The record is a 62-nucleotide RNA from Piliocolobus tephrosceles, which matches "U7 small nuclear RNA" in Rfam.
Animal histone pre-mRNAs are spliced by a different mechanism than nuclear pre-mRNAs and self-splicing introns.
RNA sequence: UUGUGUUACAGCUCUUCUAGAAUUUGUCUGGCAGGCUUUCCUGUUUUUACCAGAGAGCCCCC
Numbered sequence: 001u002u003g004u005g006u007u008a009c010a011g012c013u014c015u016u017c018u019a020g021a022a023u024u025u026g027u028c029u030g031g032c033a034g035g036c037u038u039u040c041c042u043g044u045u046u047u048u049a050c051c052a053g054a055g056a057g058c059c060c061c062c
Base pairs, nucleotide, nucleotide: 034059035058036057037056038055039054040053043050044049